[Rfam]
RNA sequence: GCGACCCCUAGGGUUCCUCCUACCACUUCAGUGGGGACUCUUGGUUUACUUUGAAGCUGACUCUGCUGAAGUGUUUGGGGGAACUCUGGGUGUUGU
Numbered sequence: 001g002c003g004a005c006c007c008c009u010a011g012g013g014u015u016c017c018u019c020c021u022a023c024c025a026c027u028u029c030a031g032u033g034g035g036g037a038c039u040c041u042u043g044g045u046u047u048a049c050u051u052u053g054a055a056g057c058u059g060a061c062u063c064u065g066c067u068g069a070a071g072u073g074u075u076u077g078g079g080g081g082a083a084c085u086c087u088g089g090g091u092g093u094u095g096u
Stems, first nucleotide, its partner, number of pairs: 005092001007090003011086010022076001024073012
RNA: mir-395 microRNA precursor family
Organism: Camphora micrantha